[Rfam]
Nucleotides: 067
Stems, first nucleotide, its partner, number of pairs: 006062012019049010
Number, partner (000 for none) and nucleotide at each position: 001000a002000g003000a004000c005000a006062c007061a008060c009059u010058g011057a012056g013055u014054g015053g016052c017051c018000a019049g020048a021047u022046u023045a024044u025043u026042a027041u028040g029000a030000u031000c032000u033000c034000u035000g036000a037000a038000u039000g040028c041027a042026u043025a044024a045023u046022a047021a048020u049019c050000u051017g052016g053015c054014c055013a056012c057011u058010c059009a060008g061007u062006g063000c064000a065000u066000u067000u

The family of this 67-nucleotide sequence from Cnephaeus nilssonii is "mir-9256 microRNA precursor family". The family's consensus secondary structure was predicted with RNAalifold. The match comes from Rfam's covariance-model search (82 bits). The source organism's lineage runs through Eukaryota, Bilateria, Chordata, Eutheria and Cnephaeus.